[Rfam]
RNA sequence: GCCGGGGAUAGCGCGACGGCGUGAAAAGCGGAAAACCUUACCGCCUGCCCCGGCCCCUUUUUAAGG
Numbered sequence: 001g002c003c004g005g006g007g008a009u010a011g012c013g014c015g016a017c018g019g020c021g022u023g024a025a026a027a028g029c030g031g032a033a034a035a036c037c038u039u040a041c042c043g044c045c046u047g048c049c050c051c052g053g054c055c056c057c058u059u060u061u062u063a064a065g066g
Stems, first nucleotide, its partner, number of pairs: 001054007011022004028044004036066005